[Rfam]
This 349-nucleotide sequence from Streptococcus gordonii belongs to the Rfam family "transfer-messenger RNA". Rfam classes the family as a non-coding RNA gene. The family's consensus secondary structure is taken from published work.
RNA sequence: GGGGUCGUUACGGAUUCGACAGGCAUUAUGAGGCAUAUUUUGCGACUCAUCUAGCGGAUGUAAAACGCCAGUUAAAUAUAACUGCAAAAAAUAAUACUUCUUACGCUUUAGCUGCCUAAAAACCAGCGGGCGUGACCCGAUUCGGAUUGCUUGUGUCUGAUGACAGGUCUUAUUAUUAGCAAGCUACGGUAGAAUCUUGUCUAGUGAUUUUACAAGAGAUUGAUAGACUCGCUUGAUUUGGGCUUGAGUUAUGUGUCAAAAUCAAGUUAAAACAAUACAUAGCCUAUGGUUGUAGACAAAUGUGUUGGCAGAUGUUUGGACGUGGGUUCGACUCCCACCGGCUCCAUAU
Numbered sequence: 001g002g003g004g005u006c007g008u009u010a011c012g013g014a015u016u017c018g019a020c021a022g023g024c025a026u027u028a029u030g031a032g033g034c035a036u037a038u039u040u041u042g043c044g045a046c047u048c049a050u051c052u053a054g055c056g057g058a059u060g061u062a063a064a065a066c067g068c069c070a071g072u073u074a075a076a077u078a079u080a081a082c083u084g085c086a087a088a089a090a091a092u093a094a095u096a097c098u099u100c101u102u103a104c105g106c107u108u109u110a111g112c113u114g115c116c117u118a119a120a121a122a123c124c125a126g127c128g129g130g131c132g133u134g135a136c137c138c139g140a141u142u143c144g145g146a147u148u149g150c151u152u153g154u155g156u157c158u159g160a161u162g163a164c165a166g167g168u169c170u171u172a173u174u175a176u177u178a179g180c181a182a183g184c185u186a187c188g189g190u191a192g193a194a195u196c197u198u199g200u201c202u203a204g205u206g207a208u209u210u211u212a213c214a215a216g217a218g219a220u221u222g223a224u225a226g227a228c229u230c231g232c233u234u235g236a237u238u239u240g241g242g243c244u245u246g247a248g249u250u251a252u253g254u255g256u257c258a259a260a261a262u263c264a265a266g267u268u269a270a271a272a273c274a275a276u277a278c279a280u281a282g283c284c285u286a287u288g289g290u291u292g293u294a295g296a297c298a299a300a301u302g303u304g305u306u307g308g309c310a311g312a313u314g315u316u317u318g319g320a321c322g323u324g325g326g327u328u329c330g331a332c333u334c335c336c337a338c339c340g341g342c343u344c345c346a347u348a349u
Stems, first nucleotide, its partner, number of pairs: 001345007020318008032306009043292005048060004054068003108130002111127004134169004139164001140161003144158004149184006189213008199228005231267009241257003248283003253278002322338005